The record is a 133-nucleotide RNA sequence from Salmo trutta, which matches "Small nucleolar RNA SNORA70" in Rfam. From the family's description: snoRNA U70 seems to be exclusive to mammals and is a member of the H/ACA class of snoRNA which contain H (ANANNA) and ACA box motifs. H/ACA box snoRNAs are involved in the conversion of uridines to pseudouridines (5-ribosyluracil) a constituent of structural RNAs (transfer, ribosomal, small nuclear, and small nucleolar). The family's RNA type in Rfam is H/ACA-box small nucleolar RNA. Its family is annotated with nucleolus and RNA processing in the Gene Ontology. The source organism's lineage runs through Eukaryota, Bilateria, Deuterostomia, Chordata and Salmo. On this family, see Charette and Gray, IUBMB Life 2000: "Pseudouridine in RNA: what, where, how, and why". It scores 93 bits against the family's covariance model.
RNA sequence: CUGCAGCACAUGAAGCUGACCAGUUUUGCUGCAGUGCAGUUCUGGUGUUCAAUGGCUGCAGACAGUGACUCUGUGGUUGUGUAUGAGGCCAGCUGGGAGGUGCUGGCCCCUUUAAGGGACCGCUGAGACAAGA
Numbered sequence: 001c002u003g004c005a006g007c008a009c010a011u012g013a014a015g016c017u018g019a020c021c022a023g024u025u026u027u028g029c030u031g032c033a034g035u036g037c038a039g040u041u042c043u044g045g046u047g048u049u050c051a052a053u054g055g056c057u058g059c060a061g062a063c064a065g066u067g068a069c070u071c072u073g074u075g076g077u078u079g080u081g082u083a084u085g086a087g088g089c090c091a092g093c094u095g096g097g098a099g100g101u102g103c104u105g106g107c108c109c110c111u112u113u114a115a116g117g118g119a120c121c122g123c124u125g126a127g128a129c130a131a132g133a
Base pairs, nucleotide, nucleotide: 002051003050005048019046020045021044022043026039027038028037075121076120077119087108088107089106090105091104